[Rfam]
RNA sequence: UGGCGCCCAACGUGGGGCUCCUGGCACGAAGGGCUCAACGAGGGAGCCGUCCUGAGACACGUGCAUAAAAGUGAAACUAAAAGUUUUGUGACCAACGCUAUGUGAGAGCCUGCCACACUACUAGAGUCAUGGUAAGUGGAUGGUGAUCCUUUCCCUUUUUUUCUGGCAUAGGUCAGGAAUUAGGUGACCAUAAACGCUUUGUAUCAAGUUUAAGUAAAGCUUUAAAGACAAGAGGGAUGAAGGCUAAAAAAAGAUUUAUUGCAGUGUUUUCAAUUUAUUCAUAAGGUUUGCCCUU
Numbered sequence: 001u002g003g004c005g006c007c008c009a010a011c012g013u014g015g016g017g018c019u020c021c022u023g024g025c026a027c028g029a030a031g032g033g034c035u036c037a038a039c040g041a042g043g044g045a046g047c048c049g050u051c052c053u054g055a056g057a058c059a060c061g062u063g064c065a066u067a068a069a070a071g072u073g074a075a076a077c078u079a080a081a082a083g084u085u086u087u088g089u090g091a092c093c094a095a096c097g098c099u100a101u102g103u104g105a106g107a108g109c110c111u112g113c114c115a116c117a118c119u120a121c122u123a124g125a126g127u128c129a130u131g132g133u134a135a136g137u138g139g140a141u142g143g144u145g146a147u148c149c150u151u152u153c154c155c156u157u158u159u160u161u162u163c164u165g166g167c168a169u170a171g172g173u174c175a176g177g178a179a180u181u182a183g184g185u186g187a188c189c190a191u192a193a194a195c196g197c198u199u200u201g202u203a204u205c206a207a208g209u210u211u212a213a214g215u216a217a218a219g220c221u222u223u224a225a226a227g228a229c230a231a232g233a234g235g236g237a238u239g240a241a242g243g244c245u246a247a248a249a250a251a252a253g254a255u256u257u258a259u260u261g262c263a264g265u266g267u268u269u270u271c272a273a274u275u276u277a278u279u280c281a282u283a284a285g286g287u288u289u290g291c292c293c294u295u
Stems, first nucleotide, its partner, number of pairs: 006032002012027003033047004083137003091133002097128001098126002101117004144175003148172003181224003184220002232270004237265002241257003245253001283294001285292002
A member of the RNA family "Mason-Pfizer monkey virus packaging signal" from Cavia porcellus, 295 nucleotides long.
Gene Ontology term of the family: viral genome packaging.
This family represents a group of sequences that are related to the Mason-Pfizer monkey virus (MPMV) packaging signal. The packaging signal is located in the 5' UTR and is required for specific RNA encapsidation.
The base pairs follow the family's consensus structure, which was predicted with PFOLD.
NCBI's taxonomy places the organism under Eukaryota, Teleostomi, Mammalia, Rodentia, Cavia.